[Rfam]
RNA sequence: GGAUGAGGUAGAGGCGCGAGCAUUCAAGAGUACAUUUUCCGAGAGAGGGUACUUGAUGAAGAGAAUGGAAAGGGAAUCUCGCCGAAGUCCUUAAUACAACCACUAUUAAGGGCUGGGCUUGCAUCGAAUAGGUGUAAGACUGUCACUAGAAAAUUUCCCAUUUUCUAGUGGAGCACUAUCUCAUAG
Numbered sequence: 001g002g003a004u005g006a007g008g009u010a011g012a013g014g015c016g017c018g019a020g021c022a023u024u025c026a027a028g029a030g031u032a033c034a035u036u037u038u039c040c041g042a043g044a045g046a047g048g049g050u051a052c053u054u055g056a057u058g059a060a061g062a063g064a065a066u067g068g069a070a071a072g073g074g075a076a077u078c079u080c081g082c083c084g085a086a087g088u089c090c091u092u093a094a095u096a097c098a099a100c101c102a103c104u105a106u107u108a109a110g111g112g113c114u115g116g117g118c119u120u121g122c123a124u125c126g127a128a129u130a131g132g133u134g135u136a137a138g139a140c141u142g143u144c145a146c147u148a149g150a151a152a153a154u155u156u157c158c159c160a161u162u163u164u165c166u167a168g169u170g171g172a173g174c175a176c177u178a179u180c181u182c183a184u185a186g
Stems, first nucleotide, its partner, number of pairs: 006181006016082005022077004033067007086114011115141002118138008143171010

A member of the RNA family "Lysine riboswitch aptamer" from Vulcanibacillus modesticaldus, 186 nucleotides long. It scores 129 bits against the family's covariance model.